[Rfam]
RNA sequence: UUCGGCCCGUGCAUCGCGGCCUCUGCCCGAACCGGCCCUGGCGUACUUCCCCGACGCCAGGUCCGCGCUCUCGGACAGGGACCUCGGUGCAGGGGUGUGGAACG
Numbered sequence: 001u002u003c004g005g006c007c008c009g010u011g012c013a014u015c016g017c018g019g020c021c022u023c024u025g026c027c028c029g030a031a032c033c034g035g036c037c038c039u040g041g042c043g044u045a046c047u048u049c050c051c052c053g054a055c056g057c058c059a060g061g062u063c064c065g066c067g068c069u070c071u072c073g074g075a076c077a078g079g080g081a082c083c084u085c086g087g088u089g090c091a092g093g094g095g096u097g098u099g100g101a102a103c104g
Stems, first nucleotide, its partner, number of pairs: 010091007018083002021080005027074004032067001033065003037061008